Nucleotides: 123
Base pairs, nucleotide, nucleotide: 001123004120005119006118007117008116013043014042015041016040017039021032022031023030026081027080028079029078044073045072046071047070049069050068051065053063077115082112083111084110085109
Number, partner (000 for none) and nucleotide at each position: 001123u002000g003000a004120c005119c006118a007117u008116c009000a010000c011000g012000a013043g014042c015041g016040g017039u018000u019000c020000a021032g022031g023030g024000a025000u026081c027080u028079g029078g030023c031022c032021c033000g034000a035000c036000g037000a038000c039017a040016c041015c042014g043013c044073c045072g046071c047070a048000a049069c050068c051065g052000g053063g054000a055000c056000g057000a058000c059000c060000g061000u062000c063053c064000g065051u066000c067000a068050g069049g070047u071046g072045c073044g074000a075000a076000c077115u078029c079028c080027a081026g082112c083111c084110g085109c086000g087000a088000g089000c090000c091000g092000g093000c094000c095000g096000u097000c098000c099000c100000g101000g102000g103000c104000g105000g106000u107000g108000a109085g110084c111083g112082g113000g114000a115077a116008g117007a118006u119005g120004g121000a122000a123001g
Background: SAM riboswitch aptamer (S box leader): a 123-nucleotide sequence from Gaiella occulta. About the family: The SAM riboswitch is found upstream of a number of genes which code for proteins involved in methionine or cysteine biosynthesis in Gram-positive bacteria. The family's consensus secondary structure is taken from published work.